Record summary: This 136-nucleotide RNA sequence from Pelosinus fermentans belongs to the Rfam family "Group II catalytic intron D1-D4-4". Its family is annotated with Group II intron splicing in the Gene Ontology. From the family's description: Group II introns are found in rRNA, tRNA and mRNA of organelles in fungi, plants and protists, and also in mRNA in bacteria.
RNA sequence: CAGCAGGAGUUAGUCCUGCCGGGGUAAAAGUCAGGACCCCGUAGCUUGGAUAGCAGGGUGGCGGGAAACCAAGACUCUGAAGCCUAUCGACAACCGUUUCCGAGGGAAACGUGCGAGUGAUCGGGCCGUAAUGAAG
Numbered sequence: 001c002a003g004c005a006g007g008a009g010u011u012a013g014u015c016c017u018g019c020c021g022g023g024g025u026a027a028a029a030g031u032c033a034g035g036a037c038c039c040c041g042u043a044g045c046u047u048g049g050a051u052a053g054c055a056g057g058g059u060g061g062c063g064g065g066a067a068a069c070c071a072a073g074a075c076u077c078u079g080a081a082g083c084c085u086a087u088c089g090a091c092a093a094c095c096g097u098u099u100c101c102g103a104g105g106g107a108a109a110c111g112u113g114c115g116a117g118u119g120a121u122c123g124g125g126c127c128g129u130a131a132u133g134a135a136g
Base pairs, nucleotide, nucleotide: 020041021040022039023038024037049088050087051086052085053084054079055078056077057076058075059074063070064069095111096110097109098108099107100106113129114128115127